About this RNA:
Shown here is a 77-nucleotide sequence from Capitella teleta, a member of the family "mir-133 microRNA precursor family". mir-133 was first experimentally characterised in mouse and homologues have since been discovered in several other species. The mature sequence is excised from the 3' arm of the hairpin. For this family Rfam cites "Identification of tissue-specific microRNAs from mouse" (Lagos-Quintana et al., Curr Biol, 2002). The sequence is in the family's curated seed alignment. Its family is annotated with RISC complex and miRNA-mediated post-transcriptional gene silencing in the Gene Ontology. The family has 127 seed sequences and 3,763 matches in Rfam 15.1. The organism belongs to Capitella, within Eukaryota.

[Rfam]
RNA sequence: CGCCGUAGCUGGUUGAAACUGGGUCAAAUUGUGCGCUGCUUGCGGUUCAUUUGGUCCCCUUCAACCAGCUGUGGGUG
Number, nucleotide and partner (000 for none) at each position: 001c000002g000003c074004c073005g072006u000007a070008g069009c068010u067011g066012g065013u064014u063015g062016a061017a060018a000019c000020u000021g056022g055023g000024u054025c053026a052027a051028a050029u049030u000031g000032u000033g000034c000035g000036c000037u000038g000039c000040u000041u000042g000043c000044g000045g000046u000047u000048c000049a029050u028051u027052u026053g025054g024055u022056c021057c000058c000059c000060u017061u016062c015063a014064a013065c012066c011067a010068g009069c008070u007071g000072u005073g004074g003075g000076u000077g000